[Rfam]
RNA sequence: GUGAGGUGAUGAUGAAGUUUAUCCAUUCUCUGAGUGCAGCGACGCUGCCCUCCCGCAGCACCCUGGUUCCUGUCCUAGGGCCCAGGUGCUGUGCGGCCUCCAGAGACCCUGCAGUGUCCCAGUGUCAUGCUGGGCGCUGCUGGGGCCUGUGGCUGGCUGCCUGCAGGAGUGGGGUGUCCUGGCAGGGCUGGAGCCCCCUCUGUGGGGGCUGCAUCCCCACCAAGACGAGAGAUGAUGUCUGAUCAC
Numbered sequence: 001g002u003g004a005g006g007u008g009a010u011g012a013u014g015a016a017g018u019u020u021a022u023c024c025a026u027u028c029u030c031u032g033a034g035u036g037c038a039g040c041g042a043c044g045c046u047g048c049c050c051u052c053c054c055g056c057a058g059c060a061c062c063c064u065g066g067u068u069c070c071u072g073u074c075c076u077a078g079g080g081c082c083c084a085g086g087u088g089c090u091g092u093g094c095g096g097c098c099u100c101c102a103g104a105g106a107c108c109c110u111g112c113a114g115u116g117u118c119c120c121a122g123u124g125u126c127a128u129g130c131u132g133g134g135c136g137c138u139g140c141u142g143g144g145g146c147c148u149g150u151g152g153c154u155g156g157c158u159g160c161c162u163g164c165a166g167g168a169g170u171g172g173g174g175u176g177u178c179c180u181g182g183c184a185g186g187g188c189u190g191g192a193g194c195c196c197c198c199u200c201u202g203u204g205g206g207g208g209c210u211g212c213a214u215c216c217c218c219a220c221c222a223a224g225a226c227g228a229g230a231g232a233u234g235a236u237g238u239c240u241g242a243u244c245a246c
Stems, first nucleotide, its partner, number of pairs: 010245004017238002020235001024231001026229003030224002034220002039183002042180001044177002048173003051169001053167002056163002061088001063086002066082001068080004093160006107145001108143001111140006118134007185217003189213002192210001194208004
A member of the RNA family "Small nucleolar RNA SNORD17" from Eudromia elegans, 246 nucleotides long. The family's RNA type in Rfam is C/D-box small nucleolar RNA. The snoRNA HBI-43 belongs to the C/D family of snoRNAs, guiding 2'O-ribose methylation at position U3797 of the 28S rRNA. Pseudouridylation in position U3797 is predicted to be guided by the H/ACA snoRNA ACA48. The organism belongs to Eudromia, within Eukaryota. The literature on the family includes a 2001 paper in EMBO J by Huttenhofer et al., "RNomics: an experimental approach that identifies 201 candidates for novel, small, non-messenger RNAs in mouse".